[Rfam]
RNA: Bacterial RNase P class A
RNA sequence: AGAGCCAGCGAAGCAGUUGCGGAAAGUAUCGCUGCGGCGAUGGUUUCUGAGGAAAGUCCGGGCACCCGAAAGACGCAAACUUGCUGGGUAACGCCCAGUGCGAGCGAUCGUGAGGAUAGUGCCACAGAAAAAUACCGCCGGGUCAAUUGACUCAAUUUUCCCGGUAAGGGUGCAAAGGUGCGGUAAGAGCGCACCAGCAGCAUCGAGAGGUGCUGGCUCGGUAAACCCCGGUUGGGUGCAAGGUGGUGGGAGUAUGGUUGGUCUUUUUCCAGUCCCAUGCCAUCGGCUACGGCUGAUGGAGAACCGCUUGAGGUAGUAGGUAACUGCUAUCCCAGAUAGAUAACUGCACUACUUAAGCCUGGCUUUGGUAGAACAGAACCCGGCUUAUGUCUGACUCUUCCC
Numbered sequence: 001a002g003a004g005c006c007a008g009c010g011a012a013g014c015a016g017u018u019g020c021g022g023a024a025a026g027u028a029u030c031g032c033u034g035c036g037g038c039g040a041u042g043g044u045u046u047c048u049g050a051g052g053a054a055a056g057u058c059c060g061g062g063c064a065c066c067c068g069a070a071a072g073a074c075g076c077a078a079a080c081u082u083g084c085u086g087g088g089u090a091a092c093g094c095c096c097a098g099u100g101c102g103a104g105c106g107a108u109c110g111u112g113a114g115g116a117u118a119g120u121g122c123c124a125c126a127g128a129a130a131a132a133u134a135c136c137g138c139c140g141g142g143u144c145a146a147u148u149g150a151c152u153c154a155a156u157u158u159u160c161c162c163g164g165u166a167a168g169g170g171u172g173c174a175a176a177g178g179u180g181c182g183g184u185a186a187g188a189g190c191g192c193a194c195c196a197g198c199a200g201c202a203u204c205g206a207g208a209g210g211u212g213c214u215g216g217c218u219c220g221g222u223a224a225a226c227c228c229c230g231g232u233u234g235g236g237u238g239c240a241a242g243g244u245g246g247u248g249g250g251a252g253u254a255u256g257g258u259u260g261g262u263c264u265u266u267u268u269c270c271a272g273u274c275c276c277a278u279g280c281c282a283u284c285g286g287c288u289a290c291g292g293c294u295g296a297u298g299g300a301g302a303a304c305c306g307c308u309u310g311a312g313g314u315a316g317u318a319g320g321u322a323a324c325u326g327c328u329a330u331c332c333c334a335g336a337u338a339g340a341u342a343a344c345u346g347c348a349c350u351a352c353u354u355a356a357g358c359c360u361g362g363c364u365u366u367g368g369u370a371g372a373a374c375a376g377a378a379c380c381c382g383g384c385u386u387a388u389g390u391c392u393g394a395c396u397c398u399u400c401c402c
Base pairs, nucleotide, nucleotide: 001398002397003396004395006393007392008391011388013347014346015345016344017343018342020049021048022047023046024045025044027042028041029040030039031038054386055385056384058383059382060381061380062379063238064237065236066235078233079232080231082230083229084098085097086096087095088094099113100111101110102109103108114228115227119226120225121222122221123220135169136168137165138164139163140162141161142160145157146156147155148154177195178194179193180192181191182190197217198215199214200213201212202211203210204209242305243304244303312331313330314329315328316327317326318325319324